RNA sequence: AGGAUUUUCAGCCUUCUCUUCCCUGUUCUUUCUGGAGUCAGAAAAAGCUGGGUUGAGAGGGUGAAAAAGAAAAAUU
Numbered sequence: 001a002g003g004a005u006u007u008u009c010a011g012c013c014u015u016c017u018c019u020u021c022c023c024u025g026u027u028c029u030u031u032c033u034g035g036a037g038u039c040a041g042a043a044a045a046a047g048c049u050g051g052g053u054u055g056a057g058a059g060g061g062u063g064a065a066a067a068a069g070a071a072a073a074a075u076u
Stems, first nucleotide, its partner, number of pairs: 014059005021052003025048001029044006
Background
mir-320 microRNA precursor family: a 76-nucleotide RNA from Carlito syrichta. Pairs were carried over by alignment from the consensus structure, which was predicted with RNAalifold. The literature on the family includes a 2006 paper in Genome Res by Berezikov et al., "Many novel mammalian microRNA candidates identified by extensive cloning and RAKE analysis". The family has 38 seed sequences and 659 matches in Rfam 15.1. NCBI's taxonomy places the organism under Eukaryota, Euteleostomi, Amniota, Tarsiidae, Carlito.